[Rfam]
RNA sequence: AAACAGCCCCCUAUGUAUUGGAUCUUUGACAGUUUUGGCCCCCAAGGCCACUUUUGACUUAGUCUUCGCUGACGUGGCACACACAUCCCUUAAGUGAGGUGUCACAUGUCGACCAUUGUGGGUGCCACGUCAGCGAAGACUAAGUCAAAAGUGGCCUUGGGGGCCAAAACUGACAAAGAUCCAAUACAUAUGAGGUUGUUU
Numbered sequence: 001a002a003a004c005a006g007c008c009c010c011c012u013a014u015g016u017a018u019u020g021g022a023u024c025u026u027u028g029a030c031a032g033u034u035u036u037g038g039c040c041c042c043c044a045a046g047g048c049c050a051c052u053u054u055u056g057a058c059u060u061a062g063u064c065u066u067c068g069c070u071g072a073c074g075u076g077g078c079a080c081a082c083a084c085a086u087c088c089c090u091u092a093a094g095u096g097a098g099g100u101g102u103c104a105c106a107u108g109u110c111g112a113c114c115a116u117u118g119u120g121g122g123u124g125c126c127a128c129g130u131c132a133g134c135g136a137a138g139a140c141u142a143a144g145u146c147a148a149a150a151g152u153g154g155c156c157u158u159g160g161g162g163g164c165c166a167a168a169a170c171u172g173a174c175a176a177a178g179a180u181c182c183a184a185u186a187c188a189u190a191u192g193a194g195g196u197u198g199u200u201u
Stems, first nucleotide, its partner, number of pairs: 001201002004198005012190017030172016072130002075127006082120004

Shown here is a 201-nucleotide RNA sequence from Medicago truncatula, a member of the family "MIR2619 microRNA precursor family". Gene Ontology terms of the family: miRNA-mediated post-transcriptional gene silencing and RISC complex.